RNA sequence: AGAAACGGGAAAUUGCGGUACUGCUUUUAUGCAGUAUUGAGGAAAGUCCAGACUGCCACGACCUGUGAUGGUCGUAAUGUUCGUGCCCAUCGCAAGAUGGGGCAGAGCUAAACUCUGACGACGACGAAAUCGACUCACGUAGCCGAAAGUAGUUAUAAAGUGCACAGAAAUGAGUAGGUUGGCGACAACCUAGUGAAAAAAGGUAAACUCCACGAGGCAGAAACCCAAAUUUGGUAGGGGAGCUUCCUUAAGGGAAAUGAACCAAAAGGAAGAACGCUAUUAUAGUGUUAGAUAGAUAAUUUCCUAAAACAGAAACUGGCUUACGGUU
Dot-bracket structure: ...(((((((((((.((((((((........))))))))....[[[.[[[[.(((((((((((......)))))).....(((((((((((....))))))((((((.....))))).)((.(((.....((.(.......).))......))).....((((...........(((((((....)))))))..........))..))))))))))))))...(((..........)))...(((((((................)))))))((((((.....))))))........)))))))...........]]]]]]].).)))

Bacterial RNase P class B: a 328-nucleotide sequence from Pelosinus sp. UFO1. Rfam describes the family as follows. Ribonuclease P (RNase P) is a ubiquitous endoribonuclease, found in archaea, bacteria and eukarya as well as chloroplasts and mitochondria. The literature on the family includes a 1998 paper in Annu Rev Biochem by Frank and Pace, "Ribonuclease P: unity and diversity in a tRNA processing ribozyme". The family's RNA type in Rfam is ribozyme.